[Rfam]
RNA sequence: AUUUGUCUUCAGGGCAGGGUGUAAUUCCUGACCGGUGGUGAUAGUCCACUAGCUUAAGCUGAACUGGUGAAAUUCCAGUACCGACGGUAUAGUCCGGAUGAAAGAAGAUACCA
Numbered sequence: 001a002u003u004u005g006u007c008u009u010c011a012g013g014g015c016a017g018g019g020u021g022u023a024a025u026u027c028c029u030g031a032c033c034g035g036u037g038g039u040g041a042u043a044g045u046c047c048a049c050u051a052g053c054u055u056a057a058g059c060u061g062a063a064c065u066g067g068u069g070a071a072a073u074u075c076c077a078g079u080a081c082c083g084a085c086g087g088u089a090u091a092g093u094c095c096g097g098a099u100g101a102a103a104g105a106a107g108a109u110a111c112c113a
Stems, first nucleotide, its partner, number of pairs: 004110007017029003031093002033083002035049004044081002052059002063079005085096003
RNA: FMN riboswitch aptamer (RFN element)
Organism: Orenia marismortui